[Rfam]
RNA sequence: CGGACGUCGCAUGACUGGCGGAUUGUGGGACUGACCACAGGGGAGUGCGAUGUAUACAGUUGCCGGCCGCCUGGGCACUUUUG
Numbered sequence: 001c002g003g004a005c006g007u008c009g010c011a012u013g014a015c016u017g018g019c020g021g022a023u024u025g026u027g028g029g030a031c032u033g034a035c036c037a038c039a040g041g042g043g044a045g046u047g048c049g050a051u052g053u054a055u056a057c058a059g060u061u062g063c064c065g066g067c068c069g070c071c072u073g074g075g076c077a078c079u080u081u082u083g
Stems, first nucleotide, its partner, number of pairs: 004053009015042002017071005025038004061077004
The family of this 83-nucleotide sequence from Alicyclobacillus hesperidum is "ZMP/ZTP riboswitch aptamer (pfl RNA motif)". Pairs were carried over by alignment from the consensus structure, which is taken from published work.